[Rfam]
RNA sequence: GUGACAGAAGAGAGUGAGCACACAUGGUACUUUCUUGCACGAUAUUGUGCUUCAUGCUUGAAGCUAUGCGUGCUUACUCUCUAUCUGUCAU
Numbered sequence: 001g002u003g004a005c006a007g008a009a010g011a012g013a014g015u016g017a018g019c020a021c022a023c024a025u026g027g028u029a030c031u032u033u034c035u036u037g038c039a040c041g042a043u044a045u046u047g048u049g050c051u052u053c054a055u056g057c058u059u060g061a062a063g064c065u066a067u068g069c070g071u072g073c074u075u076a077c078u079c080u081c082u083a084u085c086u087g088u089c090a091u
Stems, first nucleotide, its partner, number of pairs: 001091008010081012023068003

The family of this 91-nucleotide RNA sequence from Abrus precatorius is "mir-156 microRNA precursor family". Pairs were carried over by alignment from the consensus structure, which was predicted with PFOLD. A search with the family's covariance model found it, with a score of 84 bits. This family represents the plant microRNA (miRNA) precursor mir-156. Rfam 15.1 lists 1,401 matches to the family in 221 species.